RNA sequence: GUAGUACCCUGGUUCUGUCGCUGGUAUUUUUAUACGAGAGGAAAGUCCGGGCAGCAUAGGGCAUCCUGCUUCUGAAAGUAGAAGCUAUUGGCAACAGUAGAUAUAGGUAGAAGAAAAUAACCGCCAUCAACUGUGGUAAGGGUGAGAAGGUGGUGUAAGAGACCACCGGGCAAGAUAGGUAACUGUCUGCUCGUACCGUUCAGGAGCUGCAAGUUCAUGUAAACCGUUGUUUGAGAGUUGCCCGCUCGAAACUAUGUUACAACGGAGGGUAGAACGCUAUACUGUAUGAGGCGACUCGUCAGACAGAUAGAUGACAGAUGUUUUCAUCUUUCGAAAGAAAAUGAAAAAACCGAACCCGGCUUAUAGGGGUGCUGCUUAU
Numbered sequence: 001g002u003a004g005u006a007c008c009c010u011g012g013u014u015c016u017g018u019c020g021c022u023g024g025u026a027u028u029u030u031u032a033u034a035c036g037a038g039a040g041g042a043a044a045g046u047c048c049g050g051g052c053a054g055c056a057u058a059g060g061g062c063a064u065c066c067u068g069c070u071u072c073u074g075a076a077a078g079u080a081g082a083a084g085c086u087a088u089u090g091g092c093a094a095c096a097g098u099a100g101a102u103a104u105a106g107g108u109a110g111a112a113g114a115a116a117a118u119a120a121c122c123g124c125c126a127u128c129a130a131c132u133g134u135g136g137u138a139a140g141g142g143u144g145a146g147a148a149g150g151u152g153g154u155g156u157a158a159g160a161g162a163c164c165a166c167c168g169g170g171c172a173a174g175a176u177a178g179g180u181a182a183c184u185g186u187c188u189g190c191u192c193g194u195a196c197c198g199u200u201c202a203g204g205a206g207c208u209g210c211a212a213g214u215u216c217a218u219g220u221a222a223a224c225c226g227u228u229g230u231u232u233g234a235g236a237g238u239u240g241c242c243c244g245c246u247c248g249a250a251a252c253u254a255u256g257u258u259a260c261a262a263c264g265g266a267g268g269g270u271a272g273a274a275c276g277c278u279a280u281a282c283u284g285u286a287u288g289a290g291g292c293g294a295c296u297c298g299u300c301a302g303a304c305a306g307a308u309a310g311a312u313g314a315c316a317g318a319u320g321u322u323u324u325c326a327u328c329u330u331u332c333g334a335a336a337g338a339a340a341a342u343g344a345a346a347a348a349a350c351c352g353a354a355c356c357c358g359g360c361u362u363a364u365a366g367g368g369g370u371g372c373u374g375c376u377u378a379u
Base pairs, nucleotide, nucleotide: 001375002374003373004372005371006370007369008368009367010366011364014318015317016316017315018314019313021038022037024035025034026033027032043362044361045360047359048358049357050356051355052209053208054207055206064205065204066203067202068201069084070083071082072081073080085100087098088097089096090095101200106197107196108195109194121141122140123137124136125135126134127133149167150166151165152164153163154162169192170190171189172188174187175186176185177184178183213275214274215273216272224265225264226263227262228261229260230259282302283301284300286299287298288297289296290295

The record is a 379-nucleotide RNA sequence from Prevotella brunnea, which matches "Bacterial RNase P class A" in Rfam. Lineage of the source: Bacteria > Bacteroidota > Bacteroidales > Prevotellaceae > Prevotella.